Rfam assigns this 66-nucleotide sequence to the family "L2-Alphaproteobacteria ribosomal protein leader".

RNA sequence: GGCCACCUACGGGGGGCUUUACAUAGCGGGAGCAACUGCUCUCGCCCAGACAACGGAAGACAGUAA
Numbered sequence: 001g002g003c004c005a006c007c008u009a010c011g012g013g014g015g016g017c018u019u020u021a022c023a024u025a026g027c028g029g030g031a032g033c034a035a036c037u038g039c040u041c042u043c044g045c046c047c048a049g050a051c052a053a054c055g056g057a058a059g060a061c062a063g064u065a066a
Stems, first nucleotide, its partner, number of pairs: 001018004006014003026045007
Dot-bracket structure: ((((.(((...))))))).......(((((((......))))))).....................

A reference for the family is Eckert and Weinberg (2020), "Discovery of 20 novel ribosomal leader candidates in bacteria and archaea", BMC Microbiol. The base pairs follow the family's consensus structure, which is taken from published work.